[Rfam]
RNA sequence: UUGAAGCUCAAUCUAUAAAUGGACAAGACUUUGGUUUUAGUACGAGUUUUUGAAAAUAAAGGAGCAAUAAUCAAUUUCUUGUUCUAUCAAGAGUUUUGGUGUUGCUCCUUU
Number, nucleotide and partner (000 for none) at each position: 001u000002u000003g000004a000005a000006g000007c000008u023009c022010a000011a020012u019013c000014u000015a000016u000017a000018a000019a012020u011021g000022g009023a008024c000025a000026a000027g000028a000029c000030u000031u000032u000033g000034g000035u000036u000037u000038u000039a000040g000041u000042a000043c000044g000045a000046g000047u000048u000049u000050u000051u000052g000053a000054a000055a000056a000057u000058a111059a110060a109061g108062g107063a106064g105065c104066a103067a102068u101069a100070a000071u000072c000073a096074a095075u000076u093077u092078c091079u090080u089081g000082u000083u000084c000085u000086a000087u000088c000089a080090a079091g078092a077093g076094u000095u074096u073097u000098g000099g000100u069101g068102u067103u066104g065105c064106u063107c062108c061109u060110u059111u058